The family of this 98-nucleotide RNA sequence from Streptococcus himalayensis is "PreQ1-II (pre queuosine) riboswitch aptamer".
For this family Rfam cites "Confirmation of a second natural preQ1 aptamer class in Streptococcaceae bacteria" (Meyer et al., RNA, 2008).
Pairs were carried over by alignment from the consensus structure, which is taken from published work.
Its family is annotated with queuosine biosynthetic process in the Gene Ontology.
The organism belongs to Streptococcus, within Bacteria.

RNA sequence: UAAGAUGUAGUCUUGUCGCAUUUUUUACGACCCUUGGCACUUCCAUCCUUUAGCCAAGCAUAUUACACGCGGUACAGCCGCCAAAGGAGUUUUAUAUG
Numbered sequence: 001u002a003a004g005a006u007g008u009a010g011u012c013u014u015g016u017c018g019c020a021u022u023u024u025u026u027a028c029g030a031c032c033c034u035u036g037g038c039a040c041u042u043c044c045a046u047c048c049u050u051u052a053g054c055c056a057a058g059c060a061u062a063u064u065a066c067a068c069g070c071g072g073u074a075c076a077g078c079c080g081c082c083a084a085a086g087g088a089g090u091u092u093u094a095u096a097u098g
Base pairs, nucleotide, nucleotide: 007031008030010028011027033058034057035056036055037054038053046088047087048086049085050084069081070080071079072078